[Rfam]
RNA: Tombusvirus 5' UTR
Organism: Zeavirus zeae
RNA sequence: GAUAUCGACCUGCCUGACCAGGCUGAGAUUGCGCUAGCCGGCGUAGUUGGUAUCUCUCGCGCAAGCGGGUUUGAAGGUGCGGCCUAUCUUAGGGGGGUAAAUUGUAACUUCGCACAAAGGCAUG
Dot-bracket structure: (((((((((..((((....))))......(((((......)))))))))))))).(((((....))))).......(((((.(((.((....))))).............))))).........
Numbered sequence: 001g002a003u004a005u006c007g008a009c010c011u012g013c014c015u016g017a018c019c020a021g022g023c024u025g026a027g028a029u030u031g032c033g034c035u036a037g038c039c040g041g042c043g044u045a046g047u048u049g050g051u052a053u054c055u056c057u058c059g060c061g062c063a064a065g066c067g068g069g070u071u072u073g074a075a076g077g078u079g080c081g082g083c084c085u086a087u088c089u090u091a092g093g094g095g096g097g098u099a100a101a102u103u104g105u106a107a108c109u110u111c112g113c114a115c116a117a118a119g120g121c122a123u124g
Stems, first nucleotide, its partner, number of pairs: 001054009012023004030045005056069005077115005083097003087094002